[Rfam]
RNA sequence: AACAAAGGUACACCGGCUAAAAUCACCACGUCCAGUGGCAACGCUGUUGUGGCCUGCAUCGUUCAGA
Numbered sequence: 001a002a003c004a005a006a007g008g009u010a011c012a013c014c015g016g017c018u019a020a021a022a023u024c025a026c027c028a029c030g031u032c033c034a035g036u037g038g039c040a041a042c043g044c045u046g047u048u049g050u051g052g053c054c055u056g057c058a059u060c061g062u063u064c065a066g067a
Stems, first nucleotide, its partner, number of pairs: 011049002014046004026038004054066003
Dot-bracket structure: ..........((.((((........((((.....))))....)))).))....(((.......))).
RNA: Bacillaceae-1 RNA